[Rfam]
Source information
Shown here is a 157-nucleotide sequence, a member of the family "Enterobacterial sRNA STnc410". It is one of the family's seed sequences.
RNA sequence: AGGAUAACUUGUUCAAUAACGGAUUAUCCCCGCUGACGAAAGCGCCAUUUUUCGACCAUCGUCACGCCUUUGUCUGGCGAACAUUAGCGCAGUACCUUCAUUUAAGCGUCGCGUGGAUGUUAUGGCACUAUUUCGAUCAUUGAAUACACGGGAAACC
Dot-bracket structure: .((((((..(.(......).)..))))))......((..(...((....................))..).))............((.........))...........................................................